[Rfam]
RNA sequence: GGCUCUGUGAUUACUUUGCCUAAUUGGCAGUAUACGCUAUUCUGAAAAACAGAGUAUGAAAGAUAACUAAUUUUUACUUAAUGAGAGCC
Numbered sequence: 001g002g003c004u005c006u007g008u009g010a011u012u013a014c015u016u017u018g019c020c021u022a023a024u025u026g027g028c029a030g031u032a033u034a035c036g037c038u039a040u041u042c043u044g045a046a047a048a049a050c051a052g053a054g055u056a057u058g059a060a061a062g063a064u065a066a067c068u069a070a071u072u073u074u075u076a077c078u079u080a081a082u083g084a085g086a087g088c089c
Base pairs, nucleotide, nucleotide: 001089002088003087004086005085

A member of the RNA family "Small nucleolar RNA U54" from Arabidopsis lyrata, 89 nucleotides long.
By type it is a C/D-box small nucleolar RNA.
The match comes from Rfam's covariance-model search (56 bits).
About the family: U54 is a C/D box small nucleolar RNA, which acts as a methylation guide for 18S ribosomal RNA in plants.
Taxonomically the source falls in Arabidopsis lyrata (Eukaryota, Embryophyta, Spermatophyta, Brassicaceae).
Rfam links the family to the GO terms nucleolus and RNA processing.
The literature on the family includes a 2003 paper in Nucleic Acids Res by Chen et al., "The high diversity of snoRNAs in plants: identification and comparative study of 120 snoRNA genes from Oryza sativa".
The family has 21 seed sequences and 614 matches in Rfam 15.1.